[Rfam]
A member of the RNA family "Guanidine-II riboswitch aptamer (mini-ykkC)" from Actinomyces urogenitalis, 45 nucleotides long. Rfam's curators write: Simpler in structure and has fewer highly conserved nucleotide positions than the ykkC-yxkD leader. Taxonomically the source falls in Actinomyces urogenitalis (Bacteria, Actinomycetota, Actinomycetales, Actinomycetaceae). The base pairs follow the family's consensus structure, which is taken from published work.
RNA sequence: GCGCCGGGACGACCCGGCGACGCGGACGCACACGGGGACGGCCCC
Numbered sequence: 001g002c003g004c005c006g007g008g009a010c011g012a013c014c015c016g017g018c019g020a021c022g023c024g025g026a027c028g029c030a031c032a033c034g035g036g037g038a039c040g041g042c043c044c045c
Base pairs, nucleotide, nucleotide: 002019003018004017005016006015007014008013034045035044036043037042